Shown here is a 73-nucleotide RNA from Lactobacillus delbrueckii, a member of the family "tRNA". Pairs were carried over by alignment from the consensus structure, which is taken from published work. By type it is a transfer RNA. Rfam describes the family as follows. Transfer RNA (tRNA) molecules are approximately 80 nucleotides in length. NCBI's taxonomy places the organism under Bacteria, Bacilli, Lactobacillales, Lactobacillaceae, Lactobacillus. Rfam links the family to the GO term triplet codon-amino acid adaptor activity.
RNA sequence: GGUCCAUUGGAGCAGUGGUCUAUCUCGCCUCCCUGUCACGGAGGAGAUCGCGGGUUCAAAUCCCGCAUGGACC
Numbered sequence: 001g002g003u004c005c006a007u008u009g010g011a012g013c014a015g016u017g018g019u020c021u022a023u024c025u026c027g028c029c030u031c032c033c034u035g036u037c038a039c040g041g042a043g044g045a046g047a048u049c050g051c052g053g054g055u056u057c058a059a060a061u062c063c064c065g066c067a068u069g070g071a072c073c
Stems, first nucleotide, its partner, number of pairs: 001073007010026003028044005050066005